RNA sequence: CAAGCAUGAACGCUGCCAUUUUCCGCUUCUUUUUUUACUUUAGCGCCUGAAUCAGAGGGGCUUUGCGCGUAAGAAAAGAAACGGAAAAUCAACGCCAGAAGCCUCCAUCAGGAGGCUUUUUUUAU
Numbered sequence: 001c002a003a004g005c006a007u008g009a010a011c012g013c014u015g016c017c018a019u020u021u022u023c024c025g026c027u028u029c030u031u032u033u034u035u036u037a038c039u040u041u042a043g044c045g046c047c048u049g050a051a052u053c054a055g056a057g058g059g060g061c062u063u064u065g066c067g068c069g070u071a072a073g074a075a076a077a078g079a080a081a082c083g084g085a086a087a088a089u090c091a092a093c094g095c096c097a098g099a100a101g102c103c104u105c106c107a108u109c110a111g112g113a114g115g116c117u118u119u120u121u122u123u124a125u
Stems, first nucleotide, its partner, number of pairs: 015090001018089001020087006027080007035072004044057001046055001058066001061065001098119009
Dot-bracket structure: ..............(..(.((((((.(((((((.((((.....(.(........).)(..(...))..)))).))))))).)))))).)).......(((((((((....)))))))))......
RNA: Phenylalanine leader peptide
Organism: Cronobacter sakazakii